[Rfam]
Nucleotides: 086
Stems, first nucleotide, its partner, number of pairs: 007020005028035002059078008
Number, partner (000 for none) and nucleotide at each position: 001000g002000c003000u004000u005000c006000g007020g008019c009018g010017g011016u012000c013000g014000c015000g016011g017010c018009c019008g020007c021000c022000g023000g024000g025000a026000u027000a028035a029034u030000g031000a032000c033000a034029a035028u036000a037000a038000u039000a040000a041000a042000u043000a044000c045000a046000u047000u048000c049000c050000u051000c052000u053000u054000u055000g056000a057000c058000g059078g060077g061076c062075c063074a064073a065072u066071a067000g068000c069000g070000a071066u072065a073064u074063u075062g076061g077060c078059c079000a080000u081000u082000u083000u084000u085000u086000u

The family of this 86-nucleotide RNA from Tenebrionibacter intestinalis is "sroB RNA". Lineage of the source: Bacteria > Pseudomonadati > Pseudomonadota > Gammaproteobacteria > Tenebrionibacter. On this family, see Vogel et al., Nucleic Acids Res 2003: "RNomics in Escherichia coli detects new sRNA species and indicates parallel transcriptional output in bacteria". The family's consensus secondary structure was predicted with LocARNA.